[Rfam]
RNA sequence: UCUGAAACUCAGUGUAGCUACAGAGAAGCUGAGCUUUCAGA
Dot-bracket structure: (((((((.(((((..............)))))..)))))))

Rfam assigns this 41-nucleotide sequence from Gouania willdenowi to the family "MAT2A 3'UTR stem loop D". Lineage of the source: Eukaryota > Vertebrata > Actinopteri > Acanthomorphata > Gouania. Pairs were carried over by alignment from the consensus structure, which is taken from published work. On this family, see Parker et al., Genome Res 2011: "New families of human regulatory RNA structures identified by comparative analysis of vertebrate genomes".